The family of this 61-nucleotide RNA sequence from Mesitornis unicolor is "Small nucleolar RNA SNORD75". Lineage of the source: Eukaryota > Deuterostomia > Teleostomi > Archosauria > Mesitornis.
Nucleotides: 061
Stems, first nucleotide, its partner, number of pairs: 001061004
Number, partner (000 for none) and nucleotide at each position: 001061a002060g003059c004058c005000u006000a007000u008000g009000a010000u011000g012000u013000u014000u015000u016000c017000a018000g019000a020000g021000u022000a023000g024000u025000g026000g027000a028000c029000a030000g031000a032000a033000g034000u035000g036000a037000u038000u039000u040000c041000u042000g043000a044000a045000a046000a047000c048000u049000u050000g051000g052000c053000a054000c055000u056000g057000a058004g059003g060002c061001u
The family's consensus secondary structure was predicted with RNAalifold. A search with the family's covariance model found it, with a score of 65 bits.